[Rfam]
RNA sequence: CUGCACCUGAUACUGACCUUGCGGUCCCCCGGCCUCGUGGGCUGGGCCCCUGUGGCCCCUGGGUCCCUGAAGGUGCCAGAUUAACCGCAGCCCUGAGAUUUAAGCUCUGAGUGUGGAGAAGCACUCUGAUGUUAUGACUCAGUGGCACAGAC
Numbered sequence: 001c002u003g004c005a006c007c008u009g010a011u012a013c014u015g016a017c018c019u020u021g022c023g024g025u026c027c028c029c030c031g032g033c034c035u036c037g038u039g040g041g042c043u044g045g046g047c048c049c050c051u052g053u054g055g056c057c058c059c060u061g062g063g064u065c066c067c068u069g070a071a072g073g074u075g076c077c078a079g080a081u082u083a084a085c086c087g088c089a090g091c092c093c094u095g096a097g098a099u100u101u102a103a104g105c106u107c108u109g110a111g112u113g114u115g116g117a118g119a120a121g122c123a124c125u126c127u128g129a130u131g132u133u134a135u136g137a138c139u140c141a142g143u144g145g146c147a148c149a150g151a152c
Base pairs, nucleotide, nucleotide: 003076004075005074006073007072008071015065016064017063018062021059023057024056025055026054027046028045029044031042033039090146091145092144109124111122112121114119126142127141128140129139131138132137
Dot-bracket structure: ..((((((......((((..(.(((((((.(.(.....)..).))).......)))).)..)))).....)))))).............(((................(.((.(....).)).).((((.((....)))))).)))......